[Rfam]
RNA sequence: GGCCCAAAUUUGAGGUAGAGUAGAUUAGUAGGAUCGGCUAACCCUACUAAUCUACUCUACUUCAAGUUUGUGCCC
Number, nucleotide and partner (000 for none) at each position: 001g074002g073003c072004c000005c070006a069007a068008a067009u066010u000011u064012g063013a062014g061015g060016u059017a058018g057019a056020g055021u054022a053023g052024a000025u050026u049027a048028g047029u046030a045031g000032g043033a000034u041035c000036g000037g000038c000039u000040a000041a034042c000043c032044c000045u030046a029047c028048u027049a026050a025051u000052c023053u022054a021055c020056u019057c018058u017059a016060c015061u014062u013063c012064a011065a000066g009067u008068u007069u006070g005071u000072g003073c002074c001075c000